The record is an 80-nucleotide RNA from Sinocyclocheilus grahami, which matches "mir-30 microRNA precursor family" in Rfam. The base pairs follow the family's consensus structure, which was predicted with PFOLD. A reference for the family is Lagos-Quintana et al. (2001), "Identification of novel genes coding for small expressed RNAs", Science. The organism belongs to Sinocyclocheilus, within Eukaryota.

[Rfam]
RNA sequence: GGGGGAGCUGUAAACAUCCUUGACUGGAAGCUGGGUGUAGGGUUUGUGAAGGCUUUCAGUCGGAUGUUUGCAGCACCCUG
Numbered sequence: 001g002g003g004g005g006a007g008c009u010g011u012a013a014a015c016a017u018c019c020u021u022g023a024c025u026g027g028a029a030g031c032u033g034g035g036u037g038u039a040g041g042g043u044u045u046g047u048g049a050a051g052g053c054u055u056u057c058a059g060u061c062g063g064a065u066g067u068u069u070g071c072a073g074c075a076c077c078c079u080g
Stems, first nucleotide, its partner, number of pairs: 002079004008073012023060010